A member of the RNA family "DUF805b RNA", 35 nucleotides long. The sequence is in the family's curated seed alignment. Rfam classes the family as a cis-regulatory element.
[Rfam]
RNA sequence: UAAGGGGAUGCUGAAAACCUUGAAAAGAGUAAGCU
Numbered sequence: 001u002a003a004g005g006g007g008a009u010g011c012u013g014a015a016a017a018c019c020u021u022g023a024a025a026a027g028a029g030u031a032a033g034c035u
Stems, first nucleotide, its partner, number of pairs: 002021004010034003